Rfam assigns this 397-nucleotide RNA sequence from Phaeovulum vinaykumarii to the family "Bacterial RNase P class A".
NCBI's taxonomy places the organism under Bacteria, Pseudomonadati, Rhodobacterales, Paracoccaceae, Phaeovulum.
A search with the family's covariance model found it, with a score of 289 bits.

[Rfam]
RNA sequence: GCAGACGGCUGGAUGGCCGCGUGGGGGCCUGCCCCCCGCGAGGAAAGUCCGGACUCCAUGAAGCAACGGUGCCGGGUAACGCCCGGCGGGGGCGACCCCAGGGAAAGCGCCACAGAAAACAGACCGCCCUGCAUGCAGGGUAAGGGUGAAACGGUGGGGUAAGAGCCCACCGCGGGCCUGGCAACAGGACCGGCACGGCAAGCCCCACCGGGAGCAAUGCCGAAUAGGGACCUCGCGCGGGGCAGGUCGGGCAACCGGGACCGCCGCAGGGAUGCUUCGACCCGAGAGGUCCGGGUUGGCAGCUUGAUCCCGCAGGUAACUGCGGGGCCAGAGGAAUGGUCAUCCAGGGGGGCCUCGGUCCCCCGGACAGAAUCCGGCUUACAGGCCGUCUGCGCAG
Numbered sequence: 001g002c003a004g005a006c007g008g009c010u011g012g013a014u015g016g017c018c019g020c021g022u023g024g025g026g027g028c029c030u031g032c033c034c035c036c037c038g039c040g041a042g043g044a045a046a047g048u049c050c051g052g053a054c055u056c057c058a059u060g061a062a063g064c065a066a067c068g069g070u071g072c073c074g075g076g077u078a079a080c081g082c083c084c085g086g087c088g089g090g091g092g093c094g095a096c097c098c099c100a101g102g103g104a105a106a107g108c109g110c111c112a113c114a115g116a117a118a119a120c121a122g123a124c125c126g127c128c129c130u131g132c133a134u135g136c137a138g139g140g141u142a143a144g145g146g147u148g149a150a151a152c153g154g155u156g157g158g159g160u161a162a163g164a165g166c167c168c169a170c171c172g173c174g175g176g177c178c179u180g181g182c183a184a185c186a187g188g189a190c191c192g193g194c195a196c197g198g199c200a201a202g203c204c205c206c207a208c209c210g211g212g213a214g215c216a217a218u219g220c221c222g223a224a225u226a227g228g229g230a231c232c233u234c235g236c237g238c239g240g241g242g243c244a245g246g247u248c249g250g251g252c253a254a255c256c257g258g259g260a261c262c263g264c265c266g267c268a269g270g271g272a273u274g275c276u277u278c279g280a281c282c283c284g285a286g287a288g289g290u291c292c293g294g295g296u297u298g299g300c301a302g303c304u305u306g307a308u309c310c311c312g313c314a315g316g317u318a319a320c321u322g323c324g325g326g327g328c329c330a331g332a333g334g335a336a337u338g339g340u341c342a343u344c345c346a347g348g349g350g351g352g353c354c355u356c357g358g359u360c361c362c363c364c365g366g367a368c369a370g371a372a373u374c375c376g377g378c379u380u381a382c383a384g385g386c387c388g389u390c391u392g393c394g395c396a397g
Base pairs, nucleotide, nucleotide: 001393002392003391004390005389006388007387008386009385010384011382012344013343014342015341016340017339018338020040021039022038023037024036025035026034027033045380046379047378049377050376051375052374053373054214055213056212057211063277067210068209069208070207071206072086073085074084075083076082087101088099089098090097091096102205103204107203108202109199110198111197124145125144126141127140128139129138130137131136153171154170155169156168157167158166172194173192174191175190177188178187179186180185218301219300220299221298228292229291230290231289232288233287269283270282271281273279308327309326310325311324312323313322314321315320

Ribonuclease P (RNase P) is a ubiquitous endoribonuclease, found in archaea, bacteria and eukarya as well as chloroplasts and mitochondria. Gene Ontology terms of the family: ribonuclease P activity, dimeric ribonuclease P complex and tRNA processing. By type it is a ribozyme.